[Rfam]
RNA sequence: CGGCGCGGUCUGUGAGGGCGGUGCUGAUGGGGCAGAAGUCAGCAGAGGUCGUAGUACCAGCAGGGAUCGUGAUGUUGCUGGGAAGGGC
Dot-bracket structure: ((.(((.((((....)))).))).))............((....)).(((......((((((.............))))))....)))

Group II catalytic intron D1-D4-1: an 88-nucleotide sequence from Gordonia hirsuta. Gene Ontology term of the family: Group II intron splicing. The organism belongs to Gordonia hirsuta, within Bacteria. Pairs were carried over by alignment from the consensus structure. A search with the family's covariance model found it, with a score of 61 bits.